[Rfam]
RNA sequence: AAUCAAUCAAUGAUGAAAUACCACGGAUGUAAAAUUCACAGACCUGUUCUGAACAAAGCGCAAACAAAACAAAAACAAUGUGGAUAUCUCCGUUGCCUUCCUUCUGAUUGAUUGAU
Numbered sequence: 001a002a003u004c005a006a007u008c009a010a011u012g013a014u015g016a017a018a019u020a021c022c023a024c025g026g027a028u029g030u031a032a033a034a035u036u037c038a039c040a041g042a043c044c045u046g047u048u049c050u051g052a053a054c055a056a057a058g059c060g061c062a063a064a065c066a067a068a069a070c071a072a073a074a075a076c077a078a079u080g081u082g083g084a085u086a087u088c089u090c091c092g093u094u095g096c097c098u099u100c101c102u103u104c105u106g107a108u109u110g111a112u113u114g115a116u
Stems, first nucleotide, its partner, number of pairs: 003115003024092004